[Rfam]
RNA sequence: CCAGCAUCACAAGCGCCAGAGCUUGCAACGAUCAAGCUGAACCAUCCCCCGGCCUCUUCGCCCGUUGCGAAGAAUGCCGGCAGCGAUGAUCCGUCAAGCUGACGAGGUGAAGGUGUUCGAAAUUUCGGCGGGGACCUUCCGGUGGAGCAUGACAUCGACAGCCAUUCCGGCAAAAGGACGCGGGCAACCGGUUCUACAAACGGAUGGCGAACAUGCCU
Dot-bracket structure: ...................((((((.....................................................................))))))........(((((...((((....))))......)))))(((((........)))))...(((((.((.......((((.(((....))))))).......)))))))..........